[Rfam]
RNA sequence: CUUGAACGACCCCAGCCACAGCGGCUCCGUCCGCUCCUGCCCGUAUGUCGCCAGCAGCGCCUGCGCCUC
Number, nucleotide and partner (000 for none) at each position: 001c000002u000003u000004g000005a000006a000007c000008g000009a000010c000011c000012c000013c000014a026015g025016c024017c023018a000019c000020a000021g000022c000023g017024g016025c015026u014027c000028c065029g064030u063031c000032c059033g058034c000035u000036c000037c054038u053039g052040c000041c050042c000043g048044u000045a000046u000047g000048u043049c000050g041051c000052c039053a038054g037055c000056a000057g000058c033059g032060c000061c000062u000063g030064c029065g028066c000067c000068u000069c000
Shown here is a 69-nucleotide sequence from Streptomyces bingchenggensis, a member of the family "ASpks TB sRNA". Pairs were carried over by alignment from the consensus structure, which is taken from published work. It is annotated as an antisense RNA. Lineage of the source: Bacteria > Actinomycetota > Kitasatosporales > Streptomycetaceae > Streptomyces bingchenggensis.